Shown here is a 96-nucleotide RNA from Vreelandella nanhaiensis, a member of the family "TPP riboswitch aptamer (THI element)". The family's consensus secondary structure is taken from published work. The match comes from Rfam's covariance-model search (77 bits). NCBI's taxonomy places the organism under Bacteria, Pseudomonadota, Gammaproteobacteria, Halomonadaceae, Vreelandella.
RNA sequence: CCGAAUCGACAGGGGCGCCUGAUCACUUCAGGCUGAGAUGCACCCUUUGAACCUGAACCGGAUAAUACCGGCGUAGGAAGUCGCGGUGUCAUUUAA
Numbered sequence: 001c002c003g004a005a006u007c008g009a010c011a012g013g014g015g016c017g018c019c020u021g022a023u024c025a026c027u028u029c030a031g032g033c034u035g036a037g038a039u040g041c042a043c044c045c046u047u048u049g050a051a052c053c054u055g056a057a058c059c060g061g062a063u064a065a066u067a068c069c070g071g072c073g074u075a076g077g078a079a080g081u082c083g084c085g086g087u088g089u090c091a092u093u094u095a096a
Stems, first nucleotide, its partner, number of pairs: 007083004011046004016040001017033005052077004058071004